[Rfam]
U1A polyadenylation inhibition element (PIE): a 75-nucleotide sequence from Menidia menidia. The source organism's lineage runs through Eukaryota, Metazoa, Neoteleostei, Acanthomorphata and Menidia. By type it is a cis-regulatory element. A reference for the family is Clerte and Hall (2004), "Global and Local Dynamics of the U1A Polyadenylation Inhibition Element (PIE) RNA and PIE RNA-U1A Complexes", Biochemistry.
RNA sequence: CUAUAAAGCAUUGCACCCAGAGUCUGGUCCCCAGACAUUGUACCUGGCGCUUUAUCUCUUUUAAUAAAAUGUUUU
Numbered sequence: 001c002u003a004u005a006a007a008g009c010a011u012u013g014c015a016c017c018c019a020g021a022g023u024c025u026g027g028u029c030c031c032c033a034g035a036c037a038u039u040g041u042a043c044c045u046g047g048c049g050c051u052u053u054a055u056c057u058c059u060u061u062u063a064a065u066a067a068a069a070u071g072u073u074u075u
Stems, first nucleotide, its partner, number of pairs: 005053005017047004022036005